The record is an 81-nucleotide RNA sequence from Eufriesea mexicana, which matches "mir-981 microRNA precursor family" in Rfam. The family's consensus secondary structure was predicted with RNAalifold. The match comes from Rfam's covariance-model search (64 bits). Lineage of the source: Eukaryota > Arthropoda > Hexapoda > Hymenoptera > Eufriesea.
RNA sequence: AUGCAAACGUUUGGGUUUCGUGACAGGCGAGCCGUUCUUUACGACUUGGUUCGUUGUCAACGAAACCUGCGCGAUCUGCAA
Numbered sequence: 001a002u003g004c005a006a007a008c009g010u011u012u013g014g015g016u017u018u019c020g021u022g023a024c025a026g027g028c029g030a031g032c033c034g035u036u037c038u039u040u041a042c043g044a045c046u047u048g049g050u051u052c053g054u055u056g057u058c059a060a061c062g063a064a065a066c067c068u069g070c071g072c073g074a075u076c077u078g079c080a081a
Stems, first nucleotide, its partner, number of pairs: 002080004012069009029052005